[Rfam]
RNA sequence: UGGCGCCCAAUGUGGGGCCUGGAUACUGGGGACAACGUGAGGGACACGACAGAGGAAAAAGGGGUGCGCAUCCGCUCAAAUAAUUCGGAGAAGCCGCGGGAGCCUGCCACGACUGAGCUGAAGGUAAGUUGGUCAUUCAAUCAUGGGGCAAGAAUUAAGUCAACAUCAGAUUUAUGUGAUACAGUUAAGAGAAGCUCUACAGGCCAGAGGAGUAAAGGUUAAAACUGAGGAUUUAUUUCAUUUCUUUGAUUUUGUAAAGGACCUUUGUCCCU
Numbered sequence: 001u002g003g004c005g006c007c008c009a010a011u012g013u014g015g016g017g018c019c020u021g022g023a024u025a026c027u028g029g030g031g032a033c034a035a036c037g038u039g040a041g042g043g044a045c046a047c048g049a050c051a052g053a054g055g056a057a058a059a060a061g062g063g064g065u066g067c068g069c070a071u072c073c074g075c076u077c078a079a080a081u082a083a084u085u086c087g088g089a090g091a092a093g094c095c096g097c098g099g100g101a102g103c104c105u106g107c108c109a110c111g112a113c114u115g116a117g118c119u120g121a122a123g124g125u126a127a128g129u130u131g132g133u134c135a136u137u138c139a140a141u142c143a144u145g146g147g148g149c150a151a152g153a154a155u156u157a158a159g160u161c162a163a164c165a166u167c168a169g170a171u172u173u174a175u176g177u178g179a180u181a182c183a184g185u186u187a188a189g190a191g192a193a194g195c196u197c198u199a200c201a202g203g204c205c206a207g208a209g210g211a212g213u214a215a216a217g218g219u220u221a222a223a224a225c226u227g228a229g230g231a232u233u234u235a236u237u238u239c240a241u242u243u244c245u246u247u248g249a250u251u252u253u254g255u256a257a258a259g260g261a262c263c264u265u266u267g268u269c270c271c272u
Stems, first nucleotide, its partner, number of pairs: 006031003012026003036048003084122002092114001095111002098108002132149001134148001136147004156199002159195002207247006216234005257272001259270004